MIR477 microRNA precursor family: a 103-nucleotide RNA from Leptobrachium leishanense.

RNA sequence: GAAGAAUCCAGUUGCACACAAAGACUUAUCAAAUUGUAGUUUAUUGUAUAAAUUUAUACAAUAAACUACAAUUUGAUAAGUCUUCGUGUGCAUCUGGAUUCUU
Numbered sequence: 001g002a003a004g005a006a007u008c009c010a011g012u013u014g015c016a017c018a019c020a021a022a023g024a025c026u027u028a029u030c031a032a033a034u035u036g037u038a039g040u041u042u043a044u045u046g047u048a049u050a051a052a053u054u055u056a057u058a059c060a061a062u063a064a065a066c067u068a069c070a071a072u073u074u075g076a077u078a079a080g081u082c083u084u085c086g087u088g089u090g091c092a093u094c095u096g097g098a099u100u101c102u103u
Stems, first nucleotide, its partner, number of pairs: 003102004008097004013092007021084015
Gene Ontology terms of the family: RISC complex and miRNA-mediated post-transcriptional gene silencing. On this family, see Lu et al., Plant Cell 2005: "Novel and mechanical stress-responsive MicroRNAs in Populus trichocarpa that are absent from Arabidopsis". Rfam 15.1 lists 63 matches to the family in 31 species.